[Rfam]
RNA sequence: AUGCAUCCAGUAAGAAUUAAACCUACGAAUUCACCAAUUAUGAGUUAAAUGCUUUAACUAUUCAGCCAUGGAUAC
Numbered sequence: 001a002u003g004c005a006u007c008c009a010g011u012a013a014g015a016a017u018u019a020a021a022c023c024u025a026c027g028a029a030u031u032c033a034c035c036a037a038u039u040a041u042g043a044g045u046u047a048a049a050u051g052c053u054u055u056a057a058c059u060a061u062u063c064a065g066c067c068a069u070g071g072a073u074a075c
Base pairs, nucleotide, nucleotide: 003075005073006072007071008070010026011025012024014022040069041068042067044066045065046064048062049061050060051059
Notes
Rfam assigns this 75-nucleotide sequence from Gossypium raimondii to the family "Plastid-ycf2 5UTR RNA". The family's consensus secondary structure was predicted with LocARNA. From the family's description: Plastid ycf2 is a non-coding RNA (ncRNA) recognised in plastids. It was found in the prime untranslated region (5UTR) of ycf2 genes, it presents a tRNA-like motif which suggests it can be involved in mRNA maturation, particularly involved in defining the precise 5' end of the transcript.